[Rfam]
RNA sequence: GCGCAGGUCAUCUAGGGUUCCGCUGCGCCAUCAUGGCAUAGGGUCCGGUCCGAGAGAUGACGCUGGGGCGGCAAACUCCGCCCCGGUACACGGCGGGAUAAAAACCCGGGAGAG
Numbered sequence: 001g002c003g004c005a006g007g008u009c010a011u012c013u014a015g016g017g018u019u020c021c022g023c024u025g026c027g028c029c030a031u032c033a034u035g036g037c038a039u040a041g042g043g044u045c046c047g048g049u050c051c052g053a054g055a056g057a058u059g060a061c062g063c064u065g066g067g068g069c070g071g072c073a074a075a076c077u078c079c080g081c082c083c084c085g086g087u088a089c090a091c092g093g094c095g096g097g098a099u100a101a102a103a104a105c106c107c108g109g110g111a112g113a114g
Base pairs, nucleotide, nucleotide: 007061008060009059010058011057012056015051016050020048021047022045023041024040025039027037028036062087063086064085065084066083067082068081069080070079071078089109091112095107096106097105
A member of the RNA family "Guanidine-I riboswitch aptamer" from Roseobacter cerasinus, 114 nucleotides long.
This family represents a conserved RNA structure found upstream of the ykkC and yxkD genes in Bacillus subtilis and related genes in other bacteria. The function of this family is unclear although it has been suggested that it may function to switch on efflux pumps and detoxification systems in response to harmful environmental molecules.
The organism belongs to Roseobacter, within Bacteria.